[Rfam]
RNA sequence: CUACUGUGCCAGCUGGUGGAUGGCUCGGCUCGAGCGCCGACGACGGACGUGCCAAGCUGCGAUAAGCCCGAGGAAGCCGCACGGAGGCGAAGAACUCGGGAUCUCCGAAUGGGAAUCCCCAUAGCAAUUGCCUUGCGCAAUAGGGAACGUCGAGAAUUGAAACAUCUUAGUAUCGACAGGAAAAGAAAUCGCAAGAGAUGUCGUAAGUAACUGCGAGUGAAACCGACACAGUCCAAACCGAAGCCCUCACGGGCAAUGUGGUGUCCGGACUGACACUCAGCACCCGACCACUCAAAUGAAGUCUUCUGGAACGGAGCGCGAUACAGGGUGAAAGCCCCGUAAUUUGAGUCACUACGGUGUGCGUCAGCUCCAGAGUAACAGGGAUUGGAAAUUCCUUGUGAAUAUCGCGGGCAUCGACCGCGAAGACUAAACACGACUCGAGACCGAUAGCGAACAAGUAGCGUGAGCGAACACUGAAAAGCACCCCACAACGGGAGGUGCAAUAGAGCCUGAAAUCAGUUGGCGAUCGAGC
Numbered sequence: 001c002u003a004c005u006g007u008g009c010c011a012g013c014u015g016g017u018g019g020a021u022g023g024c025u026c027g028g029c030u031c032g033a034g035c036g037c038c039g040a041c042g043a044c045g046g047a048c049g050u051g052c053c054a055a056g057c058u059g060c061g062a063u064a065a066g067c068c069c070g071a072g073g074a075a076g077c078c079g080c081a082c083g084g085a086g087g088c089g090a091a092g093a094a095c096u097c098g099g100g101a102u103c104u105c106c107g108a109a110u111g112g113g114a115a116u117c118c119c120c121a122u123a124g125c126a127a128u129u130g131c132c133u134u135g136c137g138c139a140a141u142a143g144g145g146a147a148c149g150u151c152g153a154g155a156a157u158u159g160a161a162a163c164a165u166c167u168u169a170g171u172a173u174c175g176a177c178a179g180g181a182a183a184a185g186a187a188a189u190c191g192c193a194a195g196a197g198a199u200g201u202c203g204u205a206a207g208u209a210a211c212u213g214c215g216a217g218u219g220a221a222a223c224c225g226a227c228a229c230a231g232u233c234c235a236a237a238c239c240g241a242a243g244c245c246c247u248c249a250c251g252g253g254c255a256a257u258g259u260g261g262u263g264u265c266c267g268g269a270c271u272g273a274c275a276c277u278c279a280g281c282a283c284c285c286g287a288c289c290a291c292u293c294a295a296a297u298g299a300a301g302u303c304u305u306c307u308g309g310a311a312c313g314g315a316g317c318g319c320g321a322u323a324c325a326g327g328g329u330g331a332a333a334g335c336c337c338c339g340u341a342a343u344u345u346g347a348g349u350c351a352c353u354a355c356g357g358u359g360u361g362c363g364u365c366a367g368c369u370c371c372a373g374a375g376u377a378a379c380a381g382g383g384a385u386u387g388g389a390a391a392u393u394c395c396u397u398g399u400g401a402a403u404a405u406c407g408c409g410g411g412c413a414u415c416g417a418c419c420g421c422g423a424a425g426a427c428u429a430a431a432c433a434c435g436a437c438u439c440g441a442g443a444c445c446g447a448u449a450g451c452g453a454a455c456a457a458g459u460a461g462c463g464u465g466a467g468c469g470a471a472c473a474c475u476g477a478a479a480a481g482c483a484c485c486c487c488a489c490a491a492c493g494g495g496a497g498g499u500g501c502a503a504u505a506g507a508g509c510c511u512g513a514a515a516u517c518a519g520u521u522g523g524c525g526a527u528c529g530a531g532c
Stems, first nucleotide, its partner, number of pairs: 007525010022510001023474001027445002029442006035435002044107004048061003067100006076088003111120003127141005148179001149177005159166002189196002200227004210218002230428004238261003243254004271366004281359004295344003301317001303316004320324001326338003378399007406422005461468002
Dot-bracket structure: ......((((((((((.....((...((((((((((.......(((((((........))).....((((((...(((.......)))......))))))...))))...(((....)))......(((((.....)))))......((((((.....((....))......))))).).........((....))...((((......((.....)).....))))..((((....(((..((((....))))....))).........((((......((((..........(((...(.((((......)))))..(...).(((.......)))...)))...........))))...))))...........(((((((........)))))))......(((((.......)))))..)))).....)).)))))).))...............((....)).....)...................................).....)))))))))).......

Rfam assigns this 532-nucleotide part of an RNA from Halorussus gelatinilyticus to the family "Archaeal large subunit ribosomal RNA". It scores 2837 bits against the family's covariance model. Lineage of the source: Archaea > Methanobacteriota > Halobacteriales > Haladaptataceae > Halorussus. Its family is annotated with structural constituent of ribosome and ribosome in the Gene Ontology.